[Rfam]
RNA: Small nucleolar RNA SNORD16
RNA sequence: UGCAAUGAUGGUGUAAUUUGCGUCUUACACUGUGCACAGUGACGGGUUGCCGCCUGUCAAUAAACUGGCACAGAUGAAUGAUGAAUAUUUAGUCUGAGCA
Numbered sequence: 001u002g003c004a005a006u007g008a009u010g011g012u013g014u015a016a017u018u019u020g021c022g023u024c025u026u027a028c029a030c031u032g033u034g035c036a037c038a039g040u041g042a043c044g045g046g047u048u049g050c051c052g053c054c055u056g057u058c059a060a061u062a063a064a065c066u067g068g069c070a071c072a073g074a075u076g077a078a079u080g081a082u083g084a085a086u087a088u089u090u091a092g093u094c095u096g097a098g099c100a
Base pairs, nucleotide, nucleotide: 001100002099003098021083022082023081024080030073031072032071033070034069039065040064041058042057043056044055045054